RNA sequence: ACAGGGAUGGAUUGAUGGCGGGCCCUUCUCUGGGGACCUCUCAUAGUAUACCCAUGCCAGGGGAGUAUGCAGCCCUGACCCACUGCCCAGCCUCCUCACUGGUGGGCUGGAGCACUGAAGGGGGUUCAGGGUA
Numbered sequence: 001a002c003a004g005g006g007a008u009g010g011a012u013u014g015a016u017g018g019c020g021g022g023c024c025c026u027u028c029u030c031u032g033g034g035g036a037c038c039u040c041u042c043a044u045a046g047u048a049u050a051c052c053c054a055u056g057c058c059a060g061g062g063g064a065g066u067a068u069g070c071a072g073c074c075c076u077g078a079c080c081c082a083c084u085g086c087c088c089a090g091c092c093u094c095c096u097c098a099c100u101g102g103u104g105g106g107c108u109g110g111a112g113c114a115c116u117g118a119a120g121g122g123g124g125u126u127c128a129g130g131g132u133a
Stems, first nucleotide, its partner, number of pairs: 001055001004051001006049001013046001015044004020039003023035002071126005081117002086112001088109006
A member of the RNA family "Small nucleolar RNA SNORA42/SNORA80 family" from Gulo gulo, 133 nucleotides long. The organism belongs to Gulo, within Eukaryota. The family's RNA type in Rfam is H/ACA-box small nucleolar RNA. Gene Ontology terms of the family: nucleolus and RNA processing. The match comes from Rfam's covariance-model search (73 bits). The members of this family belong to the H/ACA class of snoRNAs that guide the sites of modification of uridines to pseudouridines. Human ACA42 (SNORA42) was cloned from HeLa cells by immunoprecipitation with anti-GAR1 antibody. The base pairs follow the family's consensus structure, which was predicted with RNAalifold.